[Rfam]
RNA sequence: UACUUCUUGUACAAGCACUGUGCUAAAACUACAUAAGUUGAGGUUGUACCUUGGCGUCUGUAGUAAUGCUAGCACGGUACACACAAGAAGAAUAGCAAAUGCACUGGAUCAUUAAAAGACUUGGGUGGACCUCUUUCUUAAUGUCCAGUGUCCUAGUCUGGAGGCUUGGUGCAACACUG
Numbered sequence: 001u002a003c004u005u006c007u008u009g010u011a012c013a014a015g016c017a018c019u020g021u022g023c024u025a026a027a028a029c030u031a032c033a034u035a036a037g038u039u040g041a042g043g044u045u046g047u048a049c050c051u052u053g054g055c056g057u058c059u060g061u062a063g064u065a066a067u068g069c070u071a072g073c074a075c076g077g078u079a080c081a082c083a084c085a086a087g088a089a090g091a092a093u094a095g096c097a098a099a100u101g102c103a104c105u106g107g108a109u110c111a112u113u114a115a116a117a118g119a120c121u122u123g124g125g126u127g128g129a130c131c132u133c134u135u136u137c138u139u140a141a142u143g144u145c146c147a148g149u150g151u152c153c154u155a156g157u158c159u160g161g162a163g164g165c166u167u168g169g170u171g172c173a174a175c176a177c178u179g
Stems, first nucleotide, its partner, number of pairs: 018077002021074005028067001030065002035057001037055008100173008124149001126147004

This 179-nucleotide RNA sequence from Phrynocephalus forsythii belongs to the Rfam family "Small nucleolar RNA SNORA81".
The family's RNA type in Rfam is H/ACA-box small nucleolar RNA.
A reference for the family is Gu et al. (2005), "A novel experimental approach for systematic identification of box H/ACA snoRNAs from eukaryotes", Nucleic Acids Res.